[Rfam]
RNA sequence: UUGGCGGUGAAGCCCCAGUCGCUCUCCUGGCCGGUGAGCACCUCGUCGCCGAAGUGGUCGCCGUCGGCCAGGGUGUCCAGCACGGUCUGGUCGCCGUACUCGCCCUCGCCGAUCCGGUUCACCUUGCCGUGCGCGAUCAGGAAGACCUCGUCGGCCCGCCCUCCCGCCUCGACCACCACGUCACCGGGCGCGUACUCGCGCUGCUCGAACCGAGCCGCCAGGGCAGUCAGCACCUCGUCGUCCGGGAAGUCCCGCAACGCCCGGAGCUCCCGCAGCUCCUGCGGGAUGACCCGGAUGUCCGCGCCGGUGCUGAUGAAGGUCACCCGACCGUCGCCCACCGCGUAGGUGAGCCGCCGGUUGACCCGGUAGGUGCCGGCCUGGGUCUGCACCCAGGGGAGUUUGCGCAGCAGCCACCGCGGUGAGAUGCCCUGCAUCUGCGGGGUGGACUUGGUCGUGGUCGCCAGGUUCCGCGCGCCCGCGGGGCUCAGGCUCUGCCG
Numbered sequence: 001u002u003g004g005c006g007g008u009g010a011a012g013c014c015c016c017a018g019u020c021g022c023u024c025u026c027c028u029g030g031c032c033g034g035u036g037a038g039c040a041c042c043u044c045g046u047c048g049c050c051g052a053a054g055u056g057g058u059c060g061c062c063g064u065c066g067g068c069c070a071g072g073g074u075g076u077c078c079a080g081c082a083c084g085g086u087c088u089g090g091u092c093g094c095c096g097u098a099c100u101c102g103c104c105c106u107c108g109c110c111g112a113u114c115c116g117g118u119u120c121a122c123c124u125u126g127c128c129g130u131g132c133g134c135g136a137u138c139a140g141g142a143a144g145a146c147c148u149c150g151u152c153g154g155c156c157c158g159c160c161c162u163c164c165c166g167c168c169u170c171g172a173c174c175a176c177c178a179c180g181u182c183a184c185c186g187g188g189c190g191c192g193u194a195c196u197c198g199c200g201c202u203g204c205u206c207g208a209a210c211c212g213a214g215c216c217g218c219c220a221g222g223g224c225a226g227u228c229a230g231c232a233c234c235u236c237g238u239c240g241u242c243c244g245g246g247a248a249g250u251c252c253c254g255c256a257a258c259g260c261c262c263g264g265a266g267c268u269c270c271c272g273c274a275g276c277u278c279c280u281g282c283g284g285g286a287u288g289a290c291c292c293g294g295a296u297g298u299c300c301g302c303g304c305c306g307g308u309g310c311u312g313a314u315g316a317a318g319g320u321c322a323c324c325c326g327a328c329c330g331u332c333g334c335c336c337a338c339c340g341c342g343u344a345g346g347u348g349a350g351c352c353g354c355c356g357g358u359u360g361a362c363c364c365g366g367u368a369g370g371u372g373c374c375g376g377c378c379u380g381g382g383u384c385u386g387c388a389c390c391c392a393g394g395g396g397a398g399u400u401u402g403c404g405c406a407g408c409a410g411c412c413a414c415c416g417c418g419g420u421g422a423g424a425u426g427c428c429c430u431g432c433a434u435c436u437g438c439g440g441g442g443u444g445g446a447c448u449u450g451g452u453c454g455u456g457g458u459c460g461c462c463a464g465g466u467u468c469c470g471c472g473c474g475c476c477c478g479c480g481g482g483g484c485u486c487a488g489g490c491u492c493u494g495c496c497g
Stems, first nucleotide, its partner, number of pairs: 006390004011385002014382003018328002021325001023322001026319002028316001035313001037311006045305001047303003051299002054233002058229001060227002063224002065111004075103001077102001079100002082097005118221002122217001127212001129210002131206001133204003140197001143196002149192002154189005166173001235295002237290006251281001254278001256277001258275001329342003353377005361371003391431005397425001399423003403418003407415001437476001440473001442471005447465006486497001488495001
The record is a 497-nucleotide RNA from Saccharothrix espanaensis, which matches "Saccharopolyspora sRNA 350" in Rfam. The base pairs follow the family's consensus structure, which was predicted with RNAfold. Gene Ontology term of the family: regulation of secondary metabolite biosynthetic process.